This 100-nucleotide RNA from Cryobacterium tepidiphilum belongs to the Rfam family "mraW RNA". The base pairs follow the family's consensus structure, which is taken from published work.

RNA sequence: UCUAGUCCCUGUCGCCUGACUCCCAGCCGUUCAGAGCCCUGGCGCACUUCCCCGGUGCCAGGUCGAAUGGAUGGGGAUCAGGAAACAGGGCCAGGCCCGU
Numbered sequence: 001u002c003u004a005g006u007c008c009c010u011g012u013c014g015c016c017u018g019a020c021u022c023c024c025a026g027c028c029g030u031u032c033a034g035a036g037c038c039c040u041g042g043c044g045c046a047c048u049u050c051c052c053c054g055g056u057g058c059c060a061g062g063u064c065g066a067a068u069g070g071a072u073g074g075g076g077a078u079c080a081g082g083a084a085a086c087a088g089g090g091c092c093a094g095g096c097c098c099g100u
Base pairs, nucleotide, nucleotide: 010087011086012085015082016081018079019078021076022075023074024073025072027070028069029068030067031066032065036064038062039061040060041059042058043057044056045055